A member of the RNA family "mir-8834 microRNA precursor family" from Nyctereutes procyonoides, 106 nucleotides long. It scores 73 bits against the family's covariance model. Rfam links the family to the GO terms miRNA-mediated post-transcriptional gene silencing and RISC complex.

RNA sequence: AGGAGGAACAACCACAGCGGCGGCGGCCAGCUCUGCAAACCUGGAUUCAGCCCCCGCAGUAACUACUGAGCUCUCCGUCUGCAGGGCCUGGAGGCUCCGGGGCGGG
Numbered sequence: 001a002g003g004a005g006g007a008a009c010a011a012c013c014a015c016a017g018c019g020g021c022g023g024c025g026g027c028c029a030g031c032u033c034u035g036c037a038a039a040c041c042u043g044g045a046u047u048c049a050g051c052c053c054c055c056g057c058a059g060u061a062a063c064u065a066c067u068g069a070g071c072u073c074u075c076c077g078u079c080u081g082c083a084g085g086g087c088c089u090g091g092a093g094g095c096u097c098c099g100g101g102g103c104g105g106g
Base pairs, nucleotide, nucleotide: 002098003097004096005095009090010089012086013085019079020078021077022076023075025074026073029072030071031070032069033068035066037064041059042058043057
The family has 2 seed sequences and 13,926 matches in Rfam 15.1. Lineage of the source: Eukaryota > Amniota > Carnivora > Caniformia > Nyctereutes.